Shown here is a 178-nucleotide RNA from Roseovarius sp. TE539, a member of the family "Ruegeria cis52 sRNA".
The literature on the family includes a 2016 paper in Front Microbiol by Rivers et al., "Experimental Identification of Small Non-Coding RNAs in the Model Marine Bacterium Ruegeria pomeroyi DSS-3".
Rfam classes the family as a small RNA.
NCBI's taxonomy places the organism under Bacteria, Pseudomonadota, Alphaproteobacteria, Roseobacteraceae, Roseovarius.
Gene Ontology term of the family: regulation of gene expression.
RNA sequence: UUCUCAGCGCGUGCCUGAGAACGAUAUUGCGGAACUUCACCCCUUUGAGGCGCGCGGUGCGAACAUACUGCGCGGUCAUCACUUCGGCCAUCGAGGCGCGCGUCAUUCGGGCGAUAUAGCCCAUGCCAUAAAGUGCAAUGGUCAGGACCGGAAGGAAGAAGUUCUCGAAAUUGGCGCC
Numbered sequence: 001u002u003c004u005c006a007g008c009g010c011g012u013g014c015c016u017g018a019g020a021a022c023g024a025u026a027u028u029g030c031g032g033a034a035c036u037u038c039a040c041c042c043c044u045u046u047g048a049g050g051c052g053c054g055c056g057g058u059g060c061g062a063a064c065a066u067a068c069u070g071c072g073c074g075g076u077c078a079u080c081a082c083u084u085c086g087g088c089c090a091u092c093g094a095g096g097c098g099c100g101c102g103u104c105a106u107u108c109g110g111g112c113g114a115u116a117u118a119g120c121c122c123a124u125g126c127c128a129u130a131a132a133g134u135g136c137a138a139u140g141g142u143c144a145g146g147a148c149c150g151g152a153a154g155g156a157a158g159a160a161g162u163u164c165u166c167g168a169a170a171u172u173g174g175c176g177c178c
Base pairs, nucleotide, nucleotide: 004141005140006139009136010135011134012133016128017127019126021124028123029122031120038113040111041110042109046105047104048103050101051100052099053098054097055075057073058072059071060070061069082096083095084094085093086092146178149174151172152171154165155164156163157162

It scores 146 bits against the family's covariance model. Pairs were carried over by alignment from the consensus structure, which was predicted with RNAfold.